[Rfam]
Nucleotides: 306
Base pairs, nucleotide, nucleotide: 001007002006018043019042020041064244065243066242067241068240070238071237075190076189077188078187079186080185085181086180087179191224192223197218198217199216228285230284231283232282233281234280246271247270248269249268250267251266252265254263291304292303293302294301295300
Number, partner (000 for none) and nucleotide at each position: 001007u002006c003000a004000g005000u006002g007001g008000u009000g010000u011000u012000c013000c014000u015000g016000u017000c018043u019042g020041c021000g022000c023000u024000c025000c026000g027000g028000c029000g030000c031000a032000g033000c034000a035000a036000a037000c038000c039000a040000a041020g042019u043018g044000c045000u046000a047000g048000u049000c050000u051000c052000c053000u054000c055000u056000g057000g058000a059000g060000g061000c062000a063000a064244c065243a066242u067241c068240c069000u070238c071237a072000a073000a074000u075190u076189g077188c078187g079186g080185g081000a082000a083000a084000c085181u086180c087179c088000u089000a090000a091000a092000g093000c094000c095000a096000g097000u098000g099000u100000c101000a102000c103000c104000a105000a106000g107000c108000c109000g110000g111000c112000g113000u114000c115000g116000a117000a118000a119000a120000g121000g122000c123000g124000u125000c126000g127000g128000u129000g130000g131000c132000c133000g134000g135000g136000g137000u138000a139000a140000c141000g142000a143000c144000c145000u146000a147000g148000g149000g150000u151000a152000c153000g154000g155000u156000a157000a158000a159000a160000g161000c162000a163000c164000a165000c166000u167000g168000g169000a170000u171000a172000a173000u174000g175000c176000a177000a178000u179087g180086g181085a182000c183000a184000a185080u186079c187078c188077g189076c190075a191224g192223c193000c194000a195000a196000g197218c198217c199216u200000c201000g202000u203000c204000g205000c206000c207000a208000c209000u210000g211000g212000g213000c214000a215000c216199g217198g218197g219000g220000a221000a222000g223192g224191u225000u226000c227000a228285g229000a230284g231283a232282c233281u234280a235000a236000a237071u238070g239000g240068g241067g242066a243065u244064g245000g246271g247270u248269g249268g250267u251266g252265g253000a254263c255000a256000g257000a258000a259000c260000c261000g262000a263254g264000a265252c266251c267250a268249c269248u270247g271246c272000u273000u274000a275000a276000g277000a278000u279000a280234u281233a282232g283231u284230c285228c286000g287000g288000c289000c290000g291304c292303g293302c294301u295300g296000g297000a298000a299000a300295c301294g302293g303292c304291g305000u306000g